[Rfam]
RNA sequence: UGACGGCUACCCUUUGGGAGUUGAUCAGCAAACGGCAGUUUACCUGACGCAGGACAUACCGCACGGAUUCGGCAGCGAACCGGGACGGAAGG
Numbered sequence: 001u002g003a004c005g006g007c008u009a010c011c012c013u014u015u016g017g018g019a020g021u022u023g024a025u026c027a028g029c030a031a032a033c034g035g036c037a038g039u040u041u042a043c044c045u046g047a048c049g050c051a052g053g054a055c056a057u058a059c060c061g062c063a064c065g066g067a068u069u070c071g072g073c074a075g076c077g078a079a080c081c082g083g084g085a086c087g088g089a090a091g092g
Stems, first nucleotide, its partner, number of pairs: 001027003004023005010018002059088003062084001064082003068079003

Rfam assigns this 92-nucleotide RNA from a Desulfuromonadales bacterium to the family "pan motif". Taxonomically the source falls in Desulfuromonadales (Bacteria, Pseudomonadati, Thermodesulfobacteriota, Desulfuromonadia). The family's RNA type in Rfam is cis-regulatory element. The family's consensus secondary structure is taken from published work. It scores 37 bits against the family's covariance model.